[Rfam]
RNA sequence: UGUCGAUGAUGCAAGAUGUAUUUGCUACACUCGACUGUCGGGAUGACGACACUUACCACCAAGAUCGCUGAGACA
Numbered sequence: 001u002g003u004c005g006a007u008g009a010u011g012c013a014a015g016a017u018g019u020a021u022u023u024g025c026u027a028c029a030c031u032c033g034a035c036u037g038u039c040g041g042g043a044u045g046a047c048g049a050c051a052c053u054u055a056c057c058a059c060c061a062a063g064a065u066c067g068c069u070g071a072g073a074c075a
Base pairs, nucleotide, nucleotide: 001075002074003073004072
The family of this 75-nucleotide RNA sequence from Ectocarpus sp. CCAP 1310/34 is "Small nucleolar RNA SNORD24".
NCBI's taxonomy places the organism under Eukaryota, Ochrophyta, Phaeophyceae, Ectocarpales, Ectocarpus.